Description: mir-769 microRNA precursor family: an 81-nucleotide RNA sequence from Canis lupus. The family's consensus secondary structure was predicted with RNAalifold.
RNA sequence: GCGCUCUGACCUGAGACCUCUGGGUUCUGAGCUGUGAUGUUCCUUCCAAGCUGGGAUCUCUGGGGUCUUGGUUCAGGGUCG
Numbered sequence: 001g002c003g004c005u006c007u008g009a010c011c012u013g014a015g016a017c018c019u020c021u022g023g024g025u026u027c028u029g030a031g032c033u034g035u036g037a038u039g040u041u042c043c044u045u046c047c048a049a050g051c052u053g054g055g056a057u058c059u060c061u062g063g064g065g066u067c068u069u070g071g072u073u074c075a076g077g078g079u080c081g
Base pairs, nucleotide, nucleotide: 003079004078005077006076007075008074011071012070013069014068015067016066017065018064019063020062022060023059024058026056027055028054030052031051032050033049